This 141-nucleotide RNA from Apilactobacillus kunkeei belongs to the Rfam family "Ribosomal protein L20 leader". A search with the family's covariance model found it, with a score of 64 bits. The source organism's lineage runs through Bacteria, Bacillati, Bacillota, Lactobacillaceae and Apilactobacillus. The literature on the family includes a 1994 paper in Prog Nucleic Acid Res Mol Biol by Zengel and Lindahl, "Diverse mechanisms for regulating ribosomal protein synthesis in Escherichia coli".
RNA sequence: ACGAAAAAGCAGAAGCAUCCCGCUUCUCGCCUGAGUGAUCGAAAGAGAUGGCUAGGCAUGAUAUCGGAUUAACCUUUGAUUUAAUGUUCAAAGGACCAAAAGCGGGUGCUCAACUGUGGGCAUCCGCUUUUUUCUGCUUUU
Numbered sequence: 001a002c003g004a005a006a007a008a009g010c011a012g013a014a015g016c017a018u019c020c021c022g023c024u025u026c027u028c029g030c031c032u033g034a035g036u037g038a039u040c041g042a043a044a045g046a047g048a049u050g051g052c053u054a055g056g057c058a059u060g061a062u063a064u065c066g067g068a069u070u071a072a073c074c075u076u077u078g079a080u081u082u083a084a085u086g087u088u089c090a091a092a093g094g095a096c097c098a099a100a101a102g103c104g105g106g107u108g109c110u111c112a113a114c115u116g117u118g119g120g121c122a123u124c125c126g127c128u129u130u131u132u133u134c135u136g137c138u139u140u141u
Base pairs, nucleotide, nucleotide: 011027012026013025014024015023016022029057030056031055035052036051039048040047101128102127103126104125105124106123107122108121109120110119111118112117
Background
It is annotated as a cis-regulatory leader.